[Rfam]
RNA sequence: GAAAACAAAAACAAUGGAAGCCCUGCCUCUCAUCCAUCCUUGCCGCUCCGUGGCGGCGCCAGUGUGAAUUUGUCAAGCGGACAGCGG
Numbered sequence: 001g002a003a004a005a006c007a008a009a010a011a012c013a014a015u016g017g018a019a020g021c022c023c024u025g026c027c028u029c030u031c032a033u034c035c036a037u038c039c040u041u042g043c044c045g046c047u048c049c050g051u052g053g054c055g056g057c058g059c060c061a062g063u064g065u066g067a068a069u070u071u072g073u074c075a076a077g078c079g080g081a082c083a084g085c086g087g
Stems, first nucleotide, its partner, number of pairs: 035066002039062002041058007
Shown here is an 87-nucleotide RNA from Geobacillus kaustophilus, a member of the family "BsrC".
The family has 29 seed sequences and 572 matches in Rfam 15.1.
Rfam's curators put it in the seed alignment.
The family's RNA type in Rfam is small RNA.
The family's consensus secondary structure was predicted with CMfinder.